[Rfam]
RNA sequence: GUUUCCGCACCGAAACUUGUUAAAACAAAAAGUUUAGCGGAAUAACCCAUUUUGUCUGACCGAUCAUCAACGCAGCAAUGGCGUAAGACGUAUUGAUUUUUCAGACAGUUAGCGGGCUGCGGGUUGCAGUCCUUACCGGUAGAUAGGAUCUUCUCUGGAGAGUAAUGCCCAGGCUGCUUCCCUGAUAAUUGCGCUGUGUUUCCGUAUGAAAUACAGGCAACCGACACUCUGCGCCUCUUUGAGCUGACGAUAACCGUGAGGUUGGCGACGCGAAAUAGUCACGAGGCCAUCGGUUCAUGCCCGGUAAGGCGUCACCAUGCCCGCAGCUUAGUCGUCAA
Numbered sequence: 001g002u003u004u005c006c007g008c009a010c011c012g013a014a015a016c017u018u019g020u021u022a023a024a025a026c027a028a029a030a031a032g033u034u035u036a037g038c039g040g041a042a043u044a045a046c047c048c049a050u051u052u053u054g055u056c057u058g059a060c061c062g063a064u065c066a067u068c069a070a071c072g073c074a075g076c077a078a079u080g081g082c083g084u085a086a087g088a089c090g091u092a093u094u095g096a097u098u099u100u101u102c103a104g105a106c107a108g109u110u111a112g113c114g115g116g117c118u119g120c121g122g123g124u125u126g127c128a129g130u131c132c133u134u135a136c137c138g139g140u141a142g143a144u145a146g147g148a149u150c151u152u153c154u155c156u157g158g159a160g161a162g163u164a165a166u167g168c169c170c171a172g173g174c175u176g177c178u179u180c181c182c183u184g185a186u187a188a189u190u191g192c193g194c195u196g197u198g199u200u201u202c203c204g205u206a207u208g209a210a211a212u213a214c215a216g217g218c219a220a221c222c223g224a225c226a227c228u229c230u231g232c233g234c235c236u237c238u239u240u241g242a243g244c245u246g247a248c249g250a251u252a253a254c255c256g257u258g259a260g261g262u263u264g265g266c267g268a269c270g271c272g273a274a275a276u277a278g279u280c281a282c283g284a285g286g287c288c289a290u291c292g293g294u295u296c297a298u299g300c301c302c303g304g305u306a307a308g309g310c311g312u313c314a315c316c317a318u319g320c321c322c323g324c325a326g327c328u329u330a331g332u333c334g335u336c337a338a
Base pairs, nucleotide, nucleotide: 003042004041005040006039007038008037017028018027019026020025052108053107054106055105056104057103058102059101062098063097064096065095070091071090072089075082076081114329115328116327117326118325119324120323121322122321123320124319133307134306135305136304137303138302139301146180147179148178154173155172156171157170158169190219191218192217194216195215196214197213199211200210201209202208220294221293222292223291224290233287234286235285236284237283248267249266251264252263253262254261255260
Dot-bracket structure: ..((((((........((((....))))........)))))).........((((((((..((((....(((..((....))......)))...))))..)))))))).....(((((((((((........(((((((......(((.....(((((..........)))))....))).........(((.((((.((((.....)))).)))))))(((((........(((((..........((.(((((....))))).))...............)))))..)))))......)))))))...........))))))))))).........